[Rfam]
RNA sequence: GUAAUUGGAUCUCCAAGUUUUUAGAAUGCUCAAAAUUC
Numbered sequence: 001g002u003a004a005u006u007g008g009a010u011c012u013c014c015a016a017g018u019u020u021u022u023a024g025a026a027u028g029c030u031c032a033a034a035a036u037u038c
Stems, first nucleotide, its partner, number of pairs: 003018001005016004020035003024031002
Shown here is a 38-nucleotide RNA sequence from Ziziphus jujuba, a member of the family "Plastid psbT antisense RNA".
The family has 93 seed sequences and 1,866 matches in Rfam 15.1.
The family's consensus secondary structure was predicted with LocARNA.
The source organism's lineage runs through Eukaryota, Streptophytina, fabids, Ziziphus and Ziziphus jujuba.
On this family, see Richter et al., Plant Commun 2023: "Retrograde signaling in plants: A critical review focusing on the GUN pathway and beyond".